[Rfam]
RNA sequence: CAUGGGGUGAAAAUCCCACCAGGUGACUGUCGUUCCAGCCGGUAGCAGUCAAAGCAGUCGUGUGGGUAACAAAGCGGCUGAUGUAUUUGGUGAAGAAGCUGUAGGUGUUUCAGUGAGUAUACAGGUCAUAAUGUGA
Number, nucleotide and partner (000 for none) at each position: 001c000002a000003u000004g000005g000006g000007g000008u000009g000010a000011a000012a000013a000014u000015c000016c000017c000018a000019c000020c042021a000022g040023g039024u038025g000026a000027c000028u000029g000030u000031c000032g000033u000034u000035c000036c000037a000038g024039c023040c022041g000042g020043u000044a000045g000046c000047a000048g000049u000050c089051a088052a087053a086054g000055c080056a079057g078058u077059c076060g075061u000062g000063u000064g000065g070066g000067u000068a000069a000070c065071a000072a000073a000074g000075c060076g059077g058078c057079u056080g055081a000082u000083g000084u000085a000086u053087u052088u051089g050090g000091u000092g000093a000094a000095g108096a000097a000098g106099c105100u000101g000102u000103a000104g000105g099106u098107g000108u095109u000110u000111c000112a000113g129114u128115g127116a000117g000118u000119a000120u000121a000122c000123a000124g000125g000126u000127c115128a114129u113130a000131a000132u000133g000134u000135g000136a000
Notes
A member of the RNA family "Group II catalytic intron D1-D4-4" from Escherichia coli, 136 nucleotides long. Rfam's curators write: Group II introns are found in rRNA, tRNA and mRNA of organelles in fungi, plants and protists, and also in mRNA in bacteria. For this family Rfam cites "Control of branch-site choice by a group II intron" (Chu et al., EMBO J, 2001). Its family is annotated with Group II intron splicing in the Gene Ontology. Rfam's curators put it in the seed alignment. Pairs were carried over by alignment from the consensus structure.